[Rfam]
RNA sequence: UCAGGUAAAAGAGUAGUUGCUGUACUAACAUACAGAGGAAAGUCCGGACUCCAAGGGAAAAUGGUGACAGGUAAUCCCUGUCGGGGGUAACUUCAGGUAAAGGGCUACAGAAAAUAACCGCCUUGUUAACAAGGUAAGGGUGAAAAGGCGUGGUAAGAGCACACCGUACUUAUGGCAACAUAUAGUAGCUAGGCAACCACCACCAGGAGCAAGACUAAAAUGAGGUAAUGUAUUUUCCCUUACAAUUACCAAGGUGAGUCGCGCGAGUUAGGUAGUGAUACCUAUCCCAGAUGAAUAACUACAUAAACAGAAUCCGGCUUAUUUUUACCUGGCACA
Numbered sequence: 001u002c003a004g005g006u007a008a009a010a011g012a013g014u015a016g017u018u019g020c021u022g023u024a025c026u027a028a029c030a031u032a033c034a035g036a037g038g039a040a041a042g043u044c045c046g047g048a049c050u051c052c053a054a055g056g057g058a059a060a061a062u063g064g065u066g067a068c069a070g071g072u073a074a075u076c077c078c079u080g081u082c083g084g085g086g087g088u089a090a091c092u093u094c095a096g097g098u099a100a101a102g103g104g105c106u107a108c109a110g111a112a113a114a115u116a117a118c119c120g121c122c123u124u125g126u127u128a129a130c131a132a133g134g135u136a137a138g139g140g141u142g143a144a145a146a147g148g149c150g151u152g153g154u155a156a157g158a159g160c161a162c163a164c165c166g167u168a169c170u171u172a173u174g175g176c177a178a179c180a181u182a183u184a185g186u187a188g189c190u191a192g193g194c195a196a197c198c199a200c201c202a203c204c205a206g207g208a209g210c211a212a213g214a215c216u217a218a219a220a221u222g223a224g225g226u227a228a229u230g231u232a233u234u235u236u237c238c239c240u241u242a243c244a245a246u247u248a249c250c251a252a253g254g255u256g257a258g259u260c261g262c263g264c265g266a267g268u269u270a271g272g273u274a275g276u277g278a279u280a281c282c283u284a285u286c287c288c289a290g291a292u293g294a295a296u297a298a299c300u301a302c303a304u305a306a307a308c309a310g311a312a313u314c315c316g317g318c319u320u321a322u323u324u325u326u327a328c329c330u331g332g333c334a335c336a
Stems, first nucleotide, its partner, number of pairs: 001332011013302006020035005040320003044317005049209004057238001059236002062205005067081005082096001083094004097200002102198002104194003118139002120135006147165002150162003166189001167187004172181003213260004224250005229244004267286001269284006
Rfam assigns this 336-nucleotide RNA sequence from Ehrlichia canis to the family "Bacterial RNase P class A". Ribonuclease P (RNase P) is a ubiquitous endoribonuclease, found in archaea, bacteria and eukarya as well as chloroplasts and mitochondria. The source organism's lineage runs through Bacteria, Pseudomonadati, Anaplasmataceae, Ehrlichia and Ehrlichia canis.